[Rfam]
Annotation: This 70-nucleotide sequence from Ophiophagus hannah belongs to the Rfam family "mir-219 microRNA precursor family". Its family is annotated with RISC complex and miRNA-mediated post-transcriptional gene silencing in the Gene Ontology. The sequence is in the family's curated seed alignment.

RNA sequence: CUGGCUUGUGAUUGUCCAAACGCAAUUCUUGUCUCUCCACCGAGAGUUGAGUCUGGACAUCAAGAGCCGG
Number, nucleotide and partner (000 for none) at each position: 001c000002u069003g068004g067005c066006u065007u064008g000009u062010g061011a060012u059013u000014g058015u057016c056017c055018a054019a000020a000021c051022g000023c049024a048025a047026u046027u045028c044029u043030u042031g041032u000033c000034u000035c000036u000037c000038c000039a000040c000041c031042g030043a029044g028045a027046g026047u025048u024049g023050a000051g021052u000053c000054u018055g017056g016057a015058c014059a012060u011061c010062a009063a000064g007065a006066g005067c004068c003069g002070g000